[Rfam]
RNA sequence: UGAAAAGCUUUGAUAGGGAAGAGUACAUUGGCGCUUUGCUUUAAGAGAGGAAAAUCAAUUGCUGUGAGAUUUUCUAAGCGAACCCAUUGGAAGGUCGCCCUGGAGCUUCUUUCGUGAACGUAGUUCUAUUAUUAGCGAAAGACGGGAACGCCGUUAUCCAUUCGAGAGUCAAUUACUAAAGUUUAUGGUAAUUGAAAAAAAGGUGGUACCGCGGAAGCAACUCCAUUCGUCCUUUUU
Numbered sequence: 001u002g003a004a005a006a007g008c009u010u011u012g013a014u015a016g017g018g019a020a021g022a023g024u025a026c027a028u029u030g031g032c033g034c035u036u037u038g039c040u041u042u043a044a045g046a047g048a049g050g051a052a053a054a055u056c057a058a059u060u061g062c063u064g065u066g067a068g069a070u071u072u073u074c075u076a077a078g079c080g081a082a083c084c085c086a087u088u089g090g091a092a093g094g095u096c097g098c099c100c101u102g103g104a105g106c107u108u109c110u111u112u113c114g115u116g117a118a119c120g121u122a123g124u125u126c127u128a129u130u131a132u133u134a135g136c137g138a139a140a141g142a143c144g145g146g147a148a149c150g151c152c153g154u155u156a157u158c159c160a161u162u163c164g165a166g167a168g169u170c171a172a173u174u175a176c177u178a179a180a181g182u183u184u185a186u187g188g189u190a191a192u193u194g195a196a197a198a199a200a201a202g203g204u205g206g207u208a209c210c211g212c213g214g215a216a217g218c219a220a221c222u223c224c225a226u227u228c229g230u231c232c233u234u235u236u237u
Stems, first nucleotide, its partner, number of pairs: 007106002015101004026089002029086003039078003051073006109141007143153003169195010200234004211230005
Description: The family of this 237-nucleotide RNA sequence from Cytobacillus kochii is "T-box leader". The family has 48 seed sequences and 19,395 matches in Rfam 15.1. Taxonomically the source falls in Cytobacillus (Bacteria, Bacillota, Bacilli, Bacillaceae). On this family, see Grundy et al., J Bacteriol 1994: "Interaction between the acceptor end of tRNA and the T box stimulates antitermination in the Bacillus subtilis tyrS gene: a new role for the discriminator base". Uncharged tRNA acts as the effector for transcription antitermination of genes in the T-box leader family. T-boxes are found upstream of many aminoacyl-tRNA synthetase genes and some amino acid biosynthetic genes usually in Gram-positive bacteria. The anticodon of a specific tRNA base pairs to a specifier sequence within the T-box motif, and the NCCA acceptor tail of the tRNA base pairs to a conserved bulge in the T-box antiterminator hairpin.